A member of the RNA family "Alphaproteobacterial ar14" from Jiella endophytica, 117 nucleotides long. By type it is a small RNA. Smr14C2 was renamed NfeR1 (Nodule Formation Efficiency RNA) highly expressed in salt stress and during the symbiotic interaction on legume roots. The match comes from Rfam's covariance-model search (69 bits).
RNA sequence: GAAUUUCGCAAAGGCCCACCUCCUCCCGGGCCGGAGCGGAUACGGCCUGCAGAUCCUCCUCCCAAAUGCAGGCCAGACAAGCGAAGCCCGCCGGUCCUCCCCCGGCGGGUUUCGUCG
Numbered sequence: 001g002a003a004u005u006u007c008g009c010a011a012a013g014g015c016c017c018a019c020c021u022c023c024u025c026c027c028g029g030g031c032c033g034g035a036g037c038g039g040a041u042a043c044g045g046c047c048u049g050c051a052g053a054u055c056c057u058c059c060u061c062c063c064a065a066a067u068g069c070a071g072g073c074c075a076g077a078c079a080a081g082c083g084a085a086g087c088c089c090g091c092c093g094g095u096c097c098u099c100c101c102c103c104g105g106c107g108g109g110u111u112u113c114g115u116c117g
Stems, first nucleotide, its partner, number of pairs: 007038003013032005044074008084112011